[Rfam]
RNA sequence: UCUGUUUUAACCUUUGAUGCCGUAAGGCGUUGAGCAC
Numbered sequence: 001u002c003u004g005u006u007u008u009a010a011c012c013u014u015u016g017a018u019g020c021c022g023u024a025a026g027g028c029g030u031u032g033a034g035c036a037c
Base pairs, nucleotide, nucleotide: 016031017030018029019028020027021026
The record is a 37-nucleotide RNA from Cyanomargarita calcarea, which matches "CRISPR RNA direct repeat element" in Rfam. The base pairs follow the family's consensus structure, which was predicted with WAR. Lineage of the source: Bacteria > Bacillati > Nostocales > Cyanomargarita > Cyanomargarita calcarea.